[Rfam]
Background: L4-Archaeoglobi ribosomal protein leades: a 100-nucleotide RNA from Natronoarchaeum philippinense. The literature on the family includes a 2020 paper in BMC Microbiol by Eckert and Weinberg, "Discovery of 20 novel ribosomal leader candidates in bacteria and archaea". Taxonomically the source falls in Natronoarchaeum (Archaea, Methanobacteriati, Methanobacteriota, Halobacteriales). By type it is a cis-regulatory leader.
RNA sequence: CUGACGGGCGCGUACGGGUCAAUUGCGGAAUGCAACACCCGAUCUCGCUCGGCGUCCCUCCGGGAAUGGAGGUGACCGAGGGAGAGCGCGUAACAGUCAG
Numbered sequence: 001c002u003g004a005c006g007g008g009c010g011c012g013u014a015c016g017g018g019u020c021a022a023u024u025g026c027g028g029a030a031u032g033c034a035a036c037a038c039c040c041g042a043u044c045u046c047g048c049u050c051g052g053c054g055u056c057c058c059u060c061c062g063g064g065a066a067u068g069g070a071g072g073u074g075a076c077c078g079a080g081g082g083a084g085a086g087c088g089c090g091u092a093a094c095a096g097u098c099a100g
Stems, first nucleotide, its partner, number of pairs: 001100005008091006015041004023035005043085004048080005